[Rfam]
Shown here is a 233-nucleotide part of an RNA from Porphyromonas macacae, a member of the family "Bacterial large subunit ribosomal RNA". A search with the family's covariance model found it, with a score of 2721 bits.
RNA sequence: GAGUUACUGUAUCCGGCGAGGUUAAUCGAUCGAGUCGAGGAACCGCAGCGAAAGCGAGUCUUAAAUGGCGUGAAAAAGUCGGAUGAAGUAGACGCGAAACCAAGUGAUCUACCCUUGGUCAGGUUGAAGUUUAGGUAACACUAAAUGGAGGACCGAAUCGUUAAGCGUUGAAAAGCUUUCGAAUGAACUGAGGGUAGGGGUGAAAGGCUAAUCAAACUUGGAGAUAGCUCGUA
Number, nucleotide and partner (000 for none) at each position: 001g000002a000003g000004u000005u090006a089007c088008u087009g000010u085011a084012u083013c082014c081015g080016g079017c078018g000019a000020g044021g043022u042023u041024a000025a000026u038027c037028g036029a000030u000031c000032g000033a000034g000035u000036c028037g027038a026039g000040g000041a023042a022043c021044c020045g000046c000047a000048g055049c054050g000051a000052a000053a000054g049055c048056g000057a000058g069059u068060c067061u000062u000063a000064a000065a000066u000067g060068g059069c058070g000071u000072g000073a000074a000075a000076a000077a000078g017079u016080c015081g014082g013083a012084u011085g010086a000087a008088g007089u006090a005091g000092a000093c231094g230095c000096g228097a000098a000099a000100c221101c220102a219103a218104g217105u216106g000107a000108u000109c197110u196111a195112c194113c193114c192115u191116u190117g189118g188119u187120c185121a000122g154123g153124u152125u151126g000127a000128a000129g146130u145131u144132u143133a142134g141135g000136u000137a000138a000139c000140a000141c134142u133143a132144a131145a130146u129147g000148g000149a000150g000151g125152a124153c123154c122155g000156a000157a000158u182159c181160g180161u000162u000163a178164a177165g176166c175167g000168u000169u000170g000171a000172a000173a000174a000175g166176c165177u164178u163179u000180c160181g159182a158183a000184u000185g120186a000187a119188c118189u117190g116191a115192g114193g113194g112195u111196a110197g109198g000199g209200g208201u207202g000203a000204a000205a000206g000207g201208c200209u199210a000211a000212u000213c000214a000215a000216a105217c104218u103219u102220g101221g100222a000223g000224a000225u000226a000227g000228c096229u000230c094231g093232u000233a000